Shown here is a 139-nucleotide RNA from Oryza punctata, a member of the family "Small nucleolar RNA Z247". Rfam links the family to the GO terms nucleolus and RNA processing. It scores 44 bits against the family's covariance model. Rfam classes the family as a C/D-box small nucleolar RNA.
RNA sequence: CCACUUGAUGAAGAAGAUCUCAUCCAGUACAUCAUCACUGGAUUGGGCGAGGACUACAACGAGGUGAUAUCGGCUGUGUGUGCGCGGCCAGAACCCAUGACCGUGGGAAAGCUCUACUCCCAGGUCCUCAGCUUUGAGA
Numbered sequence: 001c002c003a004c005u006u007g008a009u010g011a012a013g014a015a016g017a018u019c020u021c022a023u024c025c026a027g028u029a030c031a032u033c034a035u036c037a038c039u040g041g042a043u044u045g046g047g048c049g050a051g052g053a054c055u056a057c058a059a060c061g062a063g064g065u066g067a068u069a070u071c072g073g074c075u076g077u078g079u080g081u082g083c084g085c086g087g088c089c090a091g092a093a094c095c096c097a098u099g100a101c102c103g104u105g106g107g108a109a110a111g112c113u114c115u116a117c118u119c120c121c122a123g124g125u126c127c128u129c130a131g132c133u134u135u136g137a138g139a
Stems, first nucleotide, its partner, number of pairs: 004138005094107005